RNA sequence: CCUUGACAGUUACAUGGUGUAACUGACAUUUGCCACGACAAGGAGAUUAAAAUG
Numbered sequence: 001c002c003u004u005g006a007c008a009g010u011u012a013c014a015u016g017g018u019g020u021a022a023c024u025g026a027c028a029u030u031u032g033c034c035a036c037g038a039c040a041a042g043g044a045g046a047u048u049a050a051a052a053u054g
Stems, first nucleotide, its partner, number of pairs: 002042004007025005
RNA: Mu-gpT-DE RNA